Shown here is a 79-nucleotide RNA sequence, a member of the family "skipping-rope RNA". Pairs were carried over by alignment from the consensus structure, which is taken from published work.

RNA sequence: AAAUAAUAAGGACGGAACAGGCAGCCGUCACGCCCUCGUGGUCUUAAAGAGAUGUGGGAAGGUCACCCCACUAUUAUUU
Numbered sequence: 001a002a003a004u005a006a007u008a009a010g011g012a013c014g015g016a017a018c019a020g021g022c023a024g025c026c027g028u029c030a031c032g033c034c035c036u037c038g039u040g041g042u043c044u045u046a047a048a049g050a051g052a053u054g055u056g057g058g059a060a061g062g063u064c065a066c067c068c069c070a071c072u073a074u075u076a077u078u079u
Base pairs, nucleotide, nucleotide: 001079002078003077004076005075006074007073008072011029012028013027014026015025020064021063022062031049034041035040054071055070056069057068058067